[Rfam]
RNA sequence: UGCCUUCAUGUGUUGCCCAUUCAUUGCUUUCUACGGUGAAUGUGGUGUCAGCGAAGGCGCACAGCAUAUCUUGGAUCGGCCUUAGCAAAGUCUCUCUCCGGUGGCCUUGUACUAAGUUCUAUACCAAGUACAGAA
Numbered sequence: 001u002g003c004c005u006u007c008a009u010g011u012g013u014u015g016c017c018c019a020u021u022c023a024u025u026g027c028u029u030u031c032u033a034c035g036g037u038g039a040a041u042g043u044g045g046u047g048u049c050a051g052c053g054a055a056g057g058c059g060c061a062c063a064g065c066a067u068a069u070c071u072u073g074g075a076u077c078g079g080c081c082u083u084a085g086c087a088a089a090g091u092c093u094c095u096c097u098c099c100g101g102u103g104g105c106c107u108u109g110u111a112c113u114a115a116g117u118u119c120u121a122u123a124c125c126a127a128g129u130a131c132a133g134a135a
Base pairs, nucleotide, nucleotide: 002058003057004056005055006054007053011050012049014047015046016045017044018042019041020040021039022038023037024036025035070128071127072126073125075122076121078119079118084117088113090110091109095104